A member of the RNA family "Selenocysteine insertion sequence 1" from Drosophila mojavensis, 69 nucleotides long. The incorporation of selenocysteine into a protein sequence is directed by an in-frame UGA codon (usually a stop codon) within the coding region of the mRNA. Selenoprotein mRNAs contain a conserved secondary structure in the 3' UTR that is required for the distinction of UGA stop from UGA selenocysteine. The selenocysteine insertion sequence (SECIS) is around 60 nt in length and adopts a hairpin structure which is sufficiently well-defined and conserved to act as a computational screen for selenoprotein genes. Lineage of the source: Eukaryota > Eumetazoa > Arthropoda > Insecta > mojavensis species complex. The literature on the family includes a 1996 paper in RNA by Walczak et al., "A novel RNA structural motif in the selenocysteine insertion element of eukaryotic selenoprotein mRNAs".
[Rfam]
RNA sequence: UUUGCGCUUAUGACGCAAUAUUCAUAAACUCAUCAUUUGAGUGGAAUAUUGCUGAUACAUCUACGCGGA
Numbered sequence: 001u002u003u004g005c006g007c008u009u010a011u012g013a014c015g016c017a018a019u020a021u022u023c024a025u026a027a028a029c030u031c032a033u034c035a036u037u038u039g040a041g042u043g044g045a046a047u048a049u050u051g052c053u054g055a056u057a058c059a060u061c062u063a064c065g066c067g068g069a
Stems, first nucleotide, its partner, number of pairs: 001069005015052009030040003